EcpR1: a 107-nucleotide sequence from Methylocystis heyeri.

RNA sequence: AUACCCUACGGAGUGCUCAGGUCCGCCGCAUCUCCUGGGUCCGUGGGGUUGGCCGGCUGGUGUGAGUUGGAGUGGCCUCCUUGAAGCUCUCGCCAGUCGGCCGCCUU
Numbered sequence: 001a002u003a004c005c006c007u008a009c010g011g012a013g014u015g016c017u018c019a020g021g022u023c024c025g026c027c028g029c030a031u032c033u034c035c036u037g038g039g040u041c042c043g044u045g046g047g048g049u050u051g052g053c054c055g056g057c058u059g060g061u062g063u064g065a066g067u068u069g070g071a072g073u074g075g076c077c078u079c080c081u082u083g084a085a086g087c088u089c090u091c092g093c094c095a096g097u098c099g100g101c102c103g104c105c106u107u
Stems, first nucleotide, its partner, number of pairs: 003049008016039006051102011
The match comes from Rfam's covariance-model search (101 bits). The family's RNA type in Rfam is small RNA. A reference for the family is Schluter et al. (2010), "A genome-wide survey of sRNAs in the symbiotic nitrogen-fixing alpha-proteobacterium Sinorhizobium meliloti", BMC Genomics.